[Rfam]
This 444-nucleotide sequence from Drouetiella hepatica belongs to the Rfam family "Bacterial RNase P class A". The organism belongs to Drouetiella hepatica, within Bacteria. About the family: Ribonuclease P (RNase P) is a ubiquitous endoribonuclease, found in archaea, bacteria and eukarya as well as chloroplasts and mitochondria. The family's consensus secondary structure is taken from published work. A search with the family's covariance model found it, with a score of 232 bits. The family's RNA type in Rfam is ribozyme.

RNA sequence: AGAGGAGGCGCAGGCGGUUGCGAAUUGUCAAAGAAUCCUGAUGAAAGGAGACUCAAAGCAGUUUGAGGAAAGUCCGGGCUUCCGAAAGACUAAACUUGCUGGGUAACGCCCAGUGCGAGCGAUCGUGAGGAUAGUGCCACAGAAACAUACCGCCGAUGGAGUCUCACUAGCCUAUGGGCUAGUGAGGCUAACAGGUAAGGGUGCAAGGGUGCGGUAAGAGCGCACCAGCAGCGUCGAGAGGCGCUGGCUCGGUAAACCCCGGUUGGAAGCAAGGUCGAAGGAGCGAUCGGUUGGUCUUUUUCCGGCUCCGAGUAGGGGAGGAGAAAUCCUGCUUCUGCGAAAUCCGCUAGAGGUGUUUGGUGACAAACAUCCCAGAUAGAUAACUGCCGUUUGGGUGGUUCUGCCAUCCAAACAACAGAACCCGGCUUAUGUCCGCCUCUUCCC
Numbered sequence: 001a002g003a004g005g006a007g008g009c010g011c012a013g014g015c016g017g018u019u020g021c022g023a024a025u026u027g028u029c030a031a032a033g034a035a036u037c038c039u040g041a042u043g044a045a046a047g048g049a050g051a052c053u054c055a056a057a058g059c060a061g062u063u064u065g066a067g068g069a070a071a072g073u074c075c076g077g078g079c080u081u082c083c084g085a086a087a088g089a090c091u092a093a094a095c096u097u098g099c100u101g102g103g104u105a106a107c108g109c110c111c112a113g114u115g116c117g118a119g120c121g122a123u124c125g126u127g128a129g130g131a132u133a134g135u136g137c138c139a140c141a142g143a144a145a146c147a148u149a150c151c152g153c154c155g156a157u158g159g160a161g162u163c164u165c166a167c168u169a170g171c172c173u174a175u176g177g178g179c180u181a182g183u184g185a186g187g188c189u190a191a192c193a194g195g196u197a198a199g200g201g202u203g204c205a206a207g208g209g210u211g212c213g214g215u216a217a218g219a220g221c222g223c224a225c226c227a228g229c230a231g232c233g234u235c236g237a238g239a240g241g242c243g244c245u246g247g248c249u250c251g252g253u254a255a256a257c258c259c260c261g262g263u264u265g266g267a268a269g270c271a272a273g274g275u276c277g278a279a280g281g282a283g284c285g286a287u288c289g290g291u292u293g294g295u296c297u298u299u300u301u302c303c304g305g306c307u308c309c310g311a312g313u314a315g316g317g318g319a320g321g322a323g324a325a326a327u328c329c330u331g332c333u334u335c336u337g338c339g340a341a342a343u344c345c346g347c348u349a350g351a352g353g354u355g356u357u358u359g360g361u362g363a364c365a366a367a368c369a370u371c372c373c374a375g376a377u378a379g380a381u382a383a384c385u386g387c388c389g390u391u392u393g394g395g396u397g398g399u400u401c402u403g404c405c406a407u408c409c410a411a412a413c414a415a416c417a418g419a420a421c422c423c424g425g426c427u428u429a430u431g432u433c434c435g436c437c438u439c440u441u442c443c444c
Stems, first nucleotide, its partner, number of pairs: 001440005007434002010432003013388007021065008070428003074425005079269004091321001093264003097261002099113005114128001115126004129259002134257002136253003150200002152196003157191001159189001208226006228248001229246007273345002279336006316328002352371008